[Rfam]
Rfam assigns this 123-nucleotide sequence from Melghirimyces algeriensis to the family "PyrR binding site".

RNA sequence: UGAACCUUUAAAUCCGGUCCCGUGAGGCCGUGGAAGGAAUCGAUCGGAGUUCGGUAUAUGGACAAAGGGGAUUGUCCAUUUCGAAUGGUUGGCUUCUUCCACAUGGAAGAAGCCUUUUUUUAC
Number, nucleotide and partner (000 for none) at each position: 001u000002g000003a000004a000005c037006c036007u035008u034009u033010a000011a000012a000013u000014c000015c030016g029017g028018u027019c026020c000021c000022g000023u000024g000025a000026g019027g018028c017029c016030g015031u000032g000033g009034a008035a007036g006037g005038a000039a000040u000041c000042g000043a000044u000045c000046g000047g000048a000049g000050u000051u084052c083053g082054g081055u000056a000057u000058a079059u078060g077061g076062a075063c074064a073065a000066a000067g000068g000069g000070g000071a000072u000073u064074g063075u062076c061077c060078a059079u058080u000081u054082c053083g052084a051085a000086u000087g118088g117089u000090u000091g114092g113093c112094u111095u110096c109097u108098u107099c106100c105101a000102c000103a000104u000105g100106g099107a098108a097109g096110a095111a094112g093113c092114c091115u000116u000117u088118u087119u000120u000121u000122a000123c000
Annotation
The base pairs follow the family's consensus structure, which is taken from published work. The family's RNA type in Rfam is cis-regulatory element.